This 112-nucleotide RNA sequence from Actinokineospora bangkokensis belongs to the Rfam family "SAM (S-adenosyl methionine) riboswitch aptamer". The family's consensus secondary structure is taken from published work. The organism belongs to Actinokineospora, within Bacteria. The family is grouped with related families in Rfam's "SAM clan".

[Rfam]
RNA sequence: GGUCAUGAGCGCCAGCGUCAAACCCCGGUUUGCUGGCCGGCAACCCUCCUCCGCGGUGGGGUGCCCCGGGUGAAGACCUGGUCCACCCGCACGUGGUGGGCAAGCGCGGACC
Dot-bracket structure: ((((....(.((((((....((......)).)))))))(((..(((.((.....))..))).))).........))))..((((((((....).)))))))...........